[Rfam]
RNA sequence: GUAAAUGUUUUCUAGGGUUCCGCUAUUUAAUAGGUCUGGUCCGAGAGAAAACUCACGGCAAUAAUUUCUGCAUUUUUUAUUUAACUUAAGGGAUACUAUAAAUAAGCAGUAUGACCGUGCCACGGAAGGAUAAAAGCCUGGGAGAU
Numbered sequence: 001g002u003a004a005a006u007g008u009u010u011u012c013u014a015g016g017g018u019u020c021c022g023c024u025a026u027u028u029a030a031u032a033g034g035u036c037u038g039g040u041c042c043g044a045g046a047g048a049a050a051a052c053u054c055a056c057g058g059c060a061a062u063a064a065u066u067u068c069u070g071c072a073u074u075u076u077u078u079a080u081u082u083a084a085c086u087u088a089a090g091g092g093a094u095a096c097u098a099u100a101a102a103u104a105a106g107c108a109g110u111a112u113g114a115c116c117g118u119g120c121c122a123c124g125g126a127a128g129g130a131u132a133a134a135a136g137c138c139u140g141g142g143a144g145a146u
Base pairs, nucleotide, nucleotide: 007052008051009050010049011048012047015042016041020039021038022036023033024032025031026030054119055118056117057116058115121141123144127139128138129137